A member of the RNA family "Small nucleolar RNA SNORD71" from Labrus bergylta, 80 nucleotides long. It scores 35 bits against the family's covariance model. The family's RNA type in Rfam is H/ACA-box small nucleolar RNA. Gene Ontology terms of the family: nucleolus and RNA processing. On this family, see Huttenhofer et al., EMBO J 2001: "RNomics: an experimental approach that identifies 201 candidates for novel, small, non-messenger RNAs in mouse". snoRNA HBII-239 belongs to the family of C/D snoRNAs.It is the human orthologue of the mouse MBII-239 described and is predicted to guide 2'O-ribose methylation of 5.8S rRNA on residue U14.
RNA sequence: AAAAUGCUGGUUGAUGAAAAAAAGAGUGAUCCAUCGUCUGACAGACGCUGCUGAUAACAUUUGUUUUCUGACAGCAUUUG
Numbered sequence: 001a002a003a004a005u006g007c008u009g010g011u012u013g014a015u016g017a018a019a020a021a022a023a024g025a026g027u028g029a030u031c032c033a034u035c036g037u038c039u040g041a042c043a044g045a046c047g048c049u050g051c052u053g054a055u056a057a058c059a060u061u062u063g064u065u066u067u068c069u070g071a072c073a074g075c076a077u078u079u080g
Base pairs, nucleotide, nucleotide: 002079003078004077005076006075007074008073009069010068013031014030015029017027034057036055037054038053